[Rfam]
Shown here is a 73-nucleotide RNA from Gossypium anomalum, a member of the family "Plastid-ycf2 5UTR RNA". Taxonomically the source falls in Gossypium (Eukaryota, Streptophytina, Euphyllophyta, eudicotyledons). Plastid ycf2 is a non-coding RNA (ncRNA) recognised in plastids. It was found in the prime untranslated region (5UTR) of ycf2 genes, it presents a tRNA-like motif which suggests it can be involved in mRNA maturation, particularly involved in defining the precise 5' end of the transcript. The family's consensus secondary structure was predicted with LocARNA. Rfam classes the family as a cis-regulatory element. For this family Rfam cites "Retrograde signaling in plants: A critical review focusing on the GUN pathway and beyond" (Richter et al., Plant Commun, 2023). It scores 67 bits against the family's covariance model.
RNA sequence: UUAAAUCUAGUAGGAAUUGAACUUAUGAAUUUGCCAAAUAUGAAUUGGGCGCUUUAACCAUUCAACUAUAGAU
Numbered sequence: 001u002u003a004a005a006u007c008u009a010g011u012a013g014g015a016a017u018u019g020a021a022c023u024u025a026u027g028a029a030u031u032u033g034c035c036a037a038a039u040a041u042g043a044a045u046u047g048g049g050c051g052c053u054u055u056a057a058c059c060a061u062u063c064a065a066c067u068a069u070a071g072a073u
Stems, first nucleotide, its partner, number of pairs: 005073004010026005040069003045065005051059001
Dot-bracket structure: ....((((.(((((.......))))).............(((..(((((.(.......).))))).)))))))